The record is a 205-nucleotide RNA from Bicyclus anynana, which matches "Small nucleolar RNA U3" in Rfam. Rfam classes the family as a C/D-box small nucleolar RNA. Rfam 15.1 lists 19,072 matches to the family in 1,215 species. Its family is annotated with RNA processing and nucleolus in the Gene Ontology. Its Rfam clan is "U3 clan". NCBI's taxonomy places the organism under Eukaryota, Mandibulata, Dicondylia, Neolepidoptera, Bicyclus.
RNA sequence: AAGACCUUACUUCAUAGGAUCAUUUCUAUAGUAAGCUCUUCGCGAGACUCACACAACAUGUGAGACCUAUCCAGCCAUGUUGAUGAGAUGUGGCGCGGUGUCCUGAGCGUGAGAUGGGACGAUGAAUUCAGGUCAUCAGUCUUCGAUGAUCGUUCACCCGGUCCUUCUAGGCAGGGCGUGGGAUGCUGUCGCUUUUCUGAGUGGC
Number, nucleotide and partner (000 for none) at each position: 001a040002a039003g038004a037005c000006c035007u034008u033009a032010c031011u030012u000013c000014a000015u028016a027017g026018g025019a024020u000021c000022a000023u000024u019025u018026c017027u016028a015029u000030a011031g010032u009033a008034a007035g006036c000037u004038c003039u002040u001041c000042g000043c000044g000045a000046g000047a000048c064049u063050c062051a000052c000053a000054c000055a000056a000057c000058a000059u000060g000061u000062g050063a049064g048065a000066c000067c000068u000069a000070u000071c000072c000073a000074g205075c204076c203077a202078u201079g000080u000081u000082g000083a000084u000085g000086a000087g000088a000089u000090g000091u000092g000093g192094c191095g190096c188097g187098g186099u185100g184101u183102c182103c181104u180105g000106a000107g153108c152109g151110u000111g000112a000113g000114a000115u000116g000117g142118g141119a140120c139121g137122a136123u135124g134125a133126a000127u000128u000129c000130a000131g000132g000133u125134c124135a123136u122137c121138a000139g120140u119141c118142u117143u000144c000145g000146a000147u000148g000149a000150u000151c109152g108153u107154u000155c000156a179157c178158c176159c175160g000161g000162u000163c171164c170165u000166u000167c000168u000169a000170g164171g163172c000173a000174g000175g159176g158177c000178g157179u156180g104181g103182g102183a101184u100185g099186c098187u097188g096189u000190c095191g094192c093193u000194u000195u000196u000197c000198u000199g000200a000201g078202u077203g076204g075205c074